[Rfam]
RNA sequence: GACUUAGUGUGACGAGCAAGCUUAAGCCGGUAGGUGUAGGCGCAGCGAAAGCGAGUCUGAACAGGGCGUUCAGUUCGUCGCAUUAGACCCGAAACCGAGUGAUCUAGCCAUGAGCAGGCUGAAGGUAAGGUAACACUUACUGGAGGGCCGAACCCAUAACUGUUGCAAUAGUUCGGGAUGACUUGUGGCUAGGGGUGAAAGGCCAAUCAAACUCGGAAAUAGCUGGUU
Numbered sequence: 001g002a003c004u005u006a007g008u009g010u011g012a013c014g015a016g017c018a019a020g021c022u023u024a025a026g027c028c029g030g031u032a033g034g035u036g037u038a039g040g041c042g043c044a045g046c047g048a049a050a051g052c053g054a055g056u057c058u059g060a061a062c063a064g065g066g067c068g069u070u071c072a073g074u075u076c077g078u079c080g081c082a083u084u085a086g087a088c089c090c091g092a093a094a095c096c097g098a099g100u101g102a103u104c105u106a107g108c109c110a111u112g113a114g115c116a117g118g119c120u121g122a123a124g125g126u127a128a129g130g131u132a133a134c135a136c137u138u139a140c141u142g143g144a145g146g147g148c149c150g151a152a153c154c155c156a157u158a159a160c161u162g163u164u165g166c167a168a169u170a171g172u173u174c175g176g177g178a179u180g181a182c183u184u185g186u187g188g189c190u191a192g193g194g195g196u197g198a199a200a201g202g203c204c205a206a207u208c209a210a211a212c213u214c215g216g217a218a219a220u221a222g223c224u225g226g227u228u
Base pairs, nucleotide, nucleotide: 005085006084007083008082009081010080011079012078013077014076015075016074017073020041021040022039023038026035027034028033045052046051055067056066057065058064088226089225091223095216096215097214098213099212100211104192105191106190107189108188109187110186111185112184113183114182115180117149118148119147120146124141125140126139127138128137129136153177154176155175158173159172160171161170194204195203196202
RNA: Bacterial large subunit ribosomal RNA, nucleotides 695 to 922
Organism: Kumtagia ephedrae